[Rfam]
The family of this 173-nucleotide RNA sequence from Pseudobacteroides cellulosolvens is "Group II catalytic intron D1-D4-3".
Lineage of the source: Bacteria > Bacillati > Eubacteriales > Oscillospiraceae > Pseudobacteroides cellulosolvens.
It scores 157 bits against the family's covariance model.
The pairing is the family consensus, mapped onto this sequence.

RNA sequence: UCCAUCGUGAGGUGGAAUCUGAAAGAAGCUGGAGGCAAAGCUCUGGUCUGACGAACAGAAACUGCAUAUAAGGCAUAUGUCUGUUGGGUAAGUUUGCAAAACAAAACAAAGCCCAAAACUAUCCGAAACAGGCGGUGUAAAUGCAGCAGAUAUAUGGAGUGAAAGAGAACGUU
Numbered sequence: 001u002c003c004a005u006c007g008u009g010a011g012g013u014g015g016a017a018u019c020u021g022a023a024a025g026a027a028g029c030u031g032g033a034g035g036c037a038a039a040g041c042u043c044u045g046g047u048c049u050g051a052c053g054a055a056c057a058g059a060a061a062c063u064g065c066a067u068a069u070a071a072g073g074c075a076u077a078u079g080u081c082u083g084u085u086g087g088g089u090a091a092g093u094u095u096g097c098a099a100a101a102c103a104a105a106a107c108a109a110a111g112c113c114c115a116a117a118a119c120u121a122u123c124c125g126a127a128a129c130a131g132g133c134g135g136u137g138u139a140a141a142u143g144c145a146g147c148a149g150a151u152a153u154a155u156g157g158a159g160u161g162a163a164a165g166a167g168a169a170c171g172u173u
Stems, first nucleotide, its partner, number of pairs: 001016006028173001030171002036165001040160006046151005062146006073138003078134007086114004092107004